Description:
This 74-nucleotide RNA from Diabrotica virgifera belongs to the Rfam family "HDV ribozyme from F. prausnitzii". Pairs were carried over by alignment from the consensus structure, which is taken from published work. Gene Ontology term of the family: catalytic activity. Lineage of the source: Eukaryota > Opisthokonta > Protostomia > Mandibulata > Diabrotica virgifera. The match comes from Rfam's covariance-model search (44 bits).
RNA sequence: GUAUCCCGAAUGAAGUACGUGCCUCCUAAUGGCGGGAUACGGGCAACAAUACAUUUAUUGGCUUACAUUUAUUA
Numbered sequence: 001g002u003a004u005c006c007c008g009a010a011u012g013a014a015g016u017a018c019g020u021g022c023c024u025c026c027u028a029a030u031g032g033c034g035g036g037a038u039a040c041g042g043g044c045a046a047c048a049a050u051a052c053a054u055u056u057a058u059u060g061g062c063u064u065a066c067a068u069u070u071a072u073u074a
Stems, first nucleotide, its partner, number of pairs: 001040007021033003047060005
Dot-bracket structure: (((((((.............(((.......))))))))))......(((((....)))))..............